[Rfam]
RNA sequence: GAUAACCAUAAAUCACAGCAGGAUUCAAAGUGGGUUCAGUGACAACACGAACUUCUUGAAUCGUGGCAUCAUAAAUUCCACCGAAAAACAUUGCUUUUGCAACCAGUAACAAUGCUCCCGCACCCAAAAACAGAAGAUGAUGUCCUAAAAUAAAUCCGAGUGAUUCAGGCUUUUCCCA
Numbered sequence: 001g002a003u004a005a006c007c008a009u010a011a012a013u014c015a016c017a018g019c020a021g022g023a024u025u026c027a028a029a030g031u032g033g034g035u036u037c038a039g040u041g042a043c044a045a046c047a048c049g050a051a052c053u054u055c056u057u058g059a060a061u062c063g064u065g066g067c068a069u070c071a072u073a074a075a076u077u078c079c080a081c082c083g084a085a086a087a088a089c090a091u092u093g094c095u096u097u098u099g100c101a102a103c104c105a106g107u108a109a110c111a112a113u114g115c116u117c118c119c120g121c122a123c124c125c126a127a128a129a130a131c132a133g134a135a136g137a138u139g140a141u142g143u144c145c146u147a148a149a150a151u152a153a154a155u156c157c158g159a160g161u162g163a164u165u166c167a168g169g170c171u172u173u174u175c176c177c178a
Stems, first nucleotide, its partner, number of pairs: 136175002139172002144169003148165001